[Rfam]
RNA sequence: UUUGAUUCAGCUGAUGAUAUAUCUUUUCCCCUAUGAGGUUGACACUGUUGAUCUAAAUAAGCAUUAGCCAGUGUGGUCUGACGCAUUGGA
Numbered sequence: 001u002u003u004g005a006u007u008c009a010g011c012u013g014a015u016g017a018u019a020u021a022u023c024u025u026u027u028c029c030c031c032u033a034u035g036a037g038g039u040u041g042a043c044a045c046u047g048u049u050g051a052u053c054u055a056a057a058u059a060a061g062c063a064u065u066a067g068c069c070a071g072u073g074u075g076g077u078c079u080g081a082c083g084c085a086u087u088g089g090a
Stems, first nucleotide, its partner, number of pairs: 001090006008083001
Dot-bracket structure: ((((((.(..........................................................................).))))))